[Rfam]
RNA sequence: CUCUUAUUGAGAGCGGUGGAGGGAAAGGCCCUGUGAAACCCGGCAACCUUCAAACGAAAUGUUUGAAACGGUGCUAAUACCUGCAAAACGAAUGUUUUGCAUAAUAAGAG
Numbered sequence: 001c002u003c004u005u006a007u008u009g010a011g012a013g014c015g016g017u018g019g020a021g022g023g024a025a026a027g028g029c030c031c032u033g034u035g036a037a038a039c040c041c042g043g044c045a046a047c048c049u050u051c052a053a054a055c056g057a058a059a060u061g062u063u064u065g066a067a068a069c070g071g072u073g074c075u076a077a078u079a080c081c082u083g084c085a086a087a088a089c090g091a092a093u094g095u096u097u098u099g100c101a102u103a104a105u106a107a108g109a110g
Base pairs, nucleotide, nucleotide: 001110002109003108004107005106006105007104008103013041015040016039017038021031022030023029026082027081028080042075043074044073045072047071048070049067050066051065052064053063054062079102084099085098086097087096088095089094
The record is a 110-nucleotide sequence from Bacillus anthracis, which matches "SAM riboswitch aptamer (S box leader)" in Rfam. NCBI's taxonomy places the organism under Bacteria, Bacillota, Bacillaceae, Bacillus, Bacillus anthracis. It is one of the family's seed sequences.